[Rfam]
RNA sequence: UUUGAGGGGAAUGUUGUCUGGCUCGAGGACACCAACUAGAUCUAUGAUCUGCGUGUAAUUGUGAAUGGGUGAUCGUCUCUCAGUUUUGAAGGAGAGAUUUUGAGUGAUCUUUGAUCAUGGGUUGGUGUCGUCGGACCAGGCUUCAUUCCCCCCAAU
Number, nucleotide and partner (000 for none) at each position: 001u000002u155003u154004g153005a000006g151007g150008g149009g148010a147011a146012u145013g144014u000015u000016g141017u140018c139019u138020g137021g136022c000023u000024c133025g132026a131027g000028g000029a000030c000031a000032c000033c000034a000035a000036c000037u000038a000039g000040a000041u000042c000043u000044a000045u000046g000047a000048u000049c000050u000051g000052c000053g000054u000055g000056u000057a000058a000059u000060u000061g000062u000063g000064a000065a000066u000067g000068g000069g000070u000071g000072a000073u000074c000075g000076u000077c000078u000079c000080u000081c000082a000083g000084u000085u000086u000087u000088g000089a000090a000091g000092g000093a000094g000095a000096g000097a000098u000099u000100u000101u000102g000103a000104g000105u000106g000107a000108u000109c000110u000111u000112u000113g000114a000115u000116c000117a000118u000119g000120g000121g000122u000123u000124g000125g000126u000127g000128u000129c000130g000131u026132c025133g024134g000135a000136c021137c020138a019139g018140g017141c016142u000143u000144c013145a012146u011147u010148c009149c008150c007151c006152c000153c004154a003155a002156u000
A member of the RNA family "mir-166 microRNA precursor family" from Vitis vinifera, 156 nucleotides long. A reference for the family is Reinhart et al. (2002), "MicroRNAs in plants", Genes Dev. This family represents the plant microRNA (miRNA) precursor mir-166. Taxonomically the source falls in Vitis (Eukaryota, Streptophyta, eudicotyledons, Vitales).